[Rfam]
Background: This 98-nucleotide RNA sequence from Croceibacterium atlanticum belongs to the Rfam family "Glycine riboswitch aptamer".
RNA sequence: GUUCGUGUCGUGGGAGAGCCUGUUCUUUCUCUGGAAAGAGCAGCGCCGAAGGAGCAACCGCCCCGGAAACUCUCAGGCGAAAGGACCUCGGCACGGUC
Numbered sequence: 001g002u003u004c005g006u007g008u009c010g011u012g013g014g015a016g017a018g019c020c021u022g023u024u025c026u027u028u029c030u031c032u033g034g035a036a037a038g039a040g041c042a043g044c045g046c047c048g049a050a051g052g053a054g055c056a057a058c059c060g061c062c063c064c065g066g067a068a069a070c071u072c073u074c075a076g077g078c079g080a081a082a083g084g085a086c087c088u089c090g091g092c093a094c095g096g097u098c
Base pairs, nucleotide, nucleotide: 006093007092008091009090010089012087013086020043021042022041023040024039025038026037027036028035029034045078046077047076048074049073052072053071054070058066059065